[Rfam]
RNA sequence: AGAUAAUACUGGCAAACUUAUCGAAAGAUAAGGACGCAAAGCCAUGGGUCUAAAGAUAUCUCUACGAUCGCCAGGUUGCAACA
Numbered sequence: 001a002g003a004u005a006a007u008a009c010u011g012g013c014a015a016a017c018u019u020a021u022c023g024a025a026a027g028a029u030a031a032g033g034a035c036g037c038a039a040a041g042c043c044a045u046g047g048g049u050c051u052a053a054a055g056a057u058a059u060c061u062c063u064a065c066g067a068u069c070g071c072c073a074g075g076u077u078g079c080a081a082c083a
Base pairs, nucleotide, nucleotide: 012037013036017032018031019030020029021028022027040077041076042075043074045073046072047071048068049067050066055062056061
Dot-bracket structure: ...........((...((((((....))))))...))..((((.((((((....((....))...)))..)))))))......